[Rfam]
RNA sequence: AUCAUUGACCAUAUAAUCAUUCGUAUAUUCCUGAAGAUAAGGUUCAGGAGUCUCUACCAGGGAACCGUAAAGUCCCGGCUACGGAUAGGAUGCUUUUCGCA
Numbered sequence: 001a002u003c004a005u006u007g008a009c010c011a012u013a014u015a016a017u018c019a020u021u022c023g024u025a026u027a028u029u030c031c032u033g034a035a036g037a038u039a040a041g042g043u044u045c046a047g048g049a050g051u052c053u054c055u056a057c058c059a060g061g062g063a064a065c066c067g068u069a070a071a072g073u074c075c076c077g078g079c080u081a082c083g084g085a086u087a088g089g090a091u092g093c094u095u096u097u098c099g100c101a
Base pairs, nucleotide, nucleotide: 019086020085021084022083023082024081025080029049030048031047032046033045034044035043058078060076061075062074063073
This 101-nucleotide RNA sequence from Saccharibacillus sacchari belongs to the Rfam family "Purine riboswitch aptamer". Pairs were carried over by alignment from the consensus structure, which is taken from published work. On this family, see Mandal and Breaker, Nat Struct Mol Biol 2004: "Adenine riboswitches and gene activation by disruption of a transcription terminator". A search with the family's covariance model found it, with a score of 68 bits. NCBI's taxonomy places the organism under Bacteria, Bacilli, Caryophanales, Paenibacillaceae, Saccharibacillus sacchari.